[Rfam]
RNA: 7SK RNA
RNA sequence: GGAUAUGAGGGUAAUCUGGCUGUGAGAUCUGAUAUACAUGGGUUGAUCUGACUGAUCUGGCUAGCUUAGGCAGGUGCUUGCUUUCUUCCUCAAUGUUCCAUGUAUGCUCCUCCUGAUGCUGUGUGCUUGGUUAAUGAGCACAGCCUUCCCAAUAGACAUGGUAUUGUUCAUUGGUCAAGAGUGUGUGGCAGCUGUGCUCCCCUGCUGGAAGCUCCAAGUAAGCUCAAGGUCCAUUUACAGAAUGUAGGGUAGUCAAGCAUCCAAUACUGAAGACAUAUUUAAAUGAGAAGCUGCAUGCAGCAGUCUGGCAGUGGCCUUUUUUU
Dot-bracket structure: (((..((((((.((...(.....((((((((.(.(.((..(((((......).))))))...).....).))))).))).).))..))))))....))).......((..((((((.((.....))))))((.....(.(......).).))..))...)).............................(((...((.((((((.......(.(..(((((...........))))).).).)))))).))...)))......................(((.(((..(((((.............)))))...)))..)))